[Rfam]
Nucleotides: 062
Stems, first nucleotide, its partner, number of pairs: 004058004009052002012049003017043006024036003
Number, partner (000 for none) and nucleotide at each position: 001000a002000u003000c004058a005057u006056u007055a008000a009052c010051u011000a012049a013048c014047a015000c016000a017043a018042g019041c020040a021039c022038u023000g024036a025035c026034u027000u028000g029000a030000a031000u032000a033000c034026a035025g036024u037000a038022a039021g040020u041019g042018c043017u044000a045000a046000u047014u048013g049012u050000u051010g052009g053000g054000g055007u056006a057005g058004u059000c060000u061000u062000g